[Rfam]
RNA sequence: CUACAAAGAUGAUAAUGGGAACUCUCUCUUUCUGAGCCUUCAGUGGAGAUCACUUUUACCAGAUCCUGAGUAGU
Numbered sequence: 001c002u003a004c005a006a007a008g009a010u011g012a013u014a015a016u017g018g019g020a021a022c023u024c025u026c027u028c029u030u031u032c033u034g035a036g037c038c039u040u041c042a043g044u045g046g047a048g049a050u051c052a053c054u055u056u057u058a059c060c061a062g063a064u065c066c067u068g069a070g071u072a073g074u
Stems, first nucleotide, its partner, number of pairs: 001073004